Annotation
The record is a 73-nucleotide sequence from Crocodylus porosus, which matches "Mammalian CPEB3 ribozyme" in Rfam. NCBI's taxonomy places the organism under Eukaryota, Eumetazoa, Amniota, Archosauria, Crocodylus. The family's consensus secondary structure is taken from published work. The mammalian CPEB3 ribozyme is a self cleaving RNA located in the second intron of the CPEB3 gene which belongs to a family of genes regulating messenger RNA polyadenylation.

RNA sequence: CAUGGAUUAUGGCCAUAGCACAAGCGUUCAUAUCAUGGCCCUGUCAAAUUCUAUCGAGUCUACAAAUUCUGCU
Number, nucleotide and partner (000 for none) at each position: 001c000002a000003u000004g000005g000006a000007u000008u000009a000010u000011g040012g039013c038014c037015a000016u000017a073018g072019c071020a070021c000022a068023a067024g036025c000026g034027u000028u000029c000030a000031u000032a000033u000034c026035a000036u024037g014038g013039c012040c011041c000042u000043g000044u000045c000046a061047a000048a059049u058050u057051c056052u000053a000054u000055c000056g051057a050058g049059u048060c000061u046062a000063c000064a000065a000066a000067u023068u022069c000070u020071g019072c018073u017